[Rfam]
RNA: mir-BART15 microRNA precursor family
Organism: Lymphocryptovirus macacinegamma4
RNA sequence: UGUGCCGCUUCGAGGUAAACAUCGGCUUACUGAAGUCUCUUAGUAAGGUCAGUGGGCCUGUUUCCCUCACAGAGACACA
Numbered sequence: 001u002g003u004g005c006c007g008c009u010u011c012g013a014g015g016u017a018a019a020c021a022u023c024g025g026c027u028u029a030c031u032g033a034a035g036u037c038u039c040u041u042a043g044u045a046a047g048g049u050c051a052g053u054g055g056g057c058c059u060g061u062u063u064c065c066c067u068c069a070c071a072g073a074g075a076c077a078c079a
Base pairs, nucleotide, nucleotide: 001079002078003077004076006074008072009071012068013067014066015065017063018062019061020060021059024058025057026056027055028054029053030052031051032050033049036048037047038046